[Rfam]
RNA sequence: AUAAAUACUUUACUCCGAUUCUGAAAAACCAAAUCAUGGCUUUUUGGAACGAUAGGGUAUAAGAAGUAAUUUUUAUGCCUGCCGAUGUGCAAAGGAGUUCAUCUAUUAGAGAU
Numbered sequence: 001a002u003a004a005a006u007a008c009u010u011u012a013c014u015c016c017g018a019u020u021c022u023g024a025a026a027a028a029c030c031a032a033a034u035c036a037u038g039g040c041u042u043u044u045u046g047g048a049a050c051g052a053u054a055g056g057g058u059a060u061a062a063g064a065a066g067u068a069a070u071u072u073u074u075a076u077g078c079c080u081g082c083c084g085a086u087g088u089g090c091a092a093a094g095g096a097g098u099u100c101a102u103c104u105a106u107u108a109g110a111g112a113u
Stems, first nucleotide, its partner, number of pairs: 003107002012098005019049009029039002055080011081090002
RNA: Molybdenum/Tungsten riboswitch aptamer (Moco RNA motif)